[Rfam]
RNA sequence: GGCACACAGAAUGUGCUGGCAUGUGUAAGUCCGACGUGCUCUUGCAGCACGGCCUUGCUAGGGCUCGGGAUUAC
Numbered sequence: 001g002g003c004a005c006a007c008a009g010a011a012u013g014u015g016c017u018g019g020c021a022u023g024u025g026u027a028a029g030u031c032c033g034a035c036g037u038g039c040u041c042u043u044g045c046a047g048c049a050c051g052g053c054c055u056u057g058c059u060a061g062g063g064c065u066c067g068g069g070a071u072u073a074c
Stems, first nucleotide, its partner, number of pairs: 001017006025074004031069002036050005051065006
Rfam assigns this 74-nucleotide RNA sequence to the family "S15-Methanomicrobia ribosomal protein leader". The family is grouped with related families in Rfam's "Ribosomal Protein S15 Leader clan". Rfam classes the family as a cis-regulatory leader. It is one of the family's seed sequences.